[Rfam]
RNA sequence: ACCUUAUCCAGAGUGGUGGAGGGAAUAGGCCCUAUGAAACCCGGCAACCAGCAUGAAUGCAUUGGUGCUAAUACCUACAGAAUAUACUGAAUGAUGAGGA
Numbered sequence: 001a002c003c004u005u006a007u008c009c010a011g012a013g014u015g016g017u018g019g020a021g022g023g024a025a026u027a028g029g030c031c032c033u034a035u036g037a038a039a040c041c042c043g044g045c046a047a048c049c050a051g052c053a054u055g056a057a058u059g060c061a062u063u064g065g066u067g068c069u070a071a072u073a074c075c076u077a078c079a080g081a082a083u084a085u086a087c088u089g090a091a092u093g094a095u096g097a098g099g100a
Stems, first nucleotide, its partner, number of pairs: 002099007013042001015041003021032003026077004043069004048065002051060003073092001078089003
RNA: SAM riboswitch aptamer (S box leader)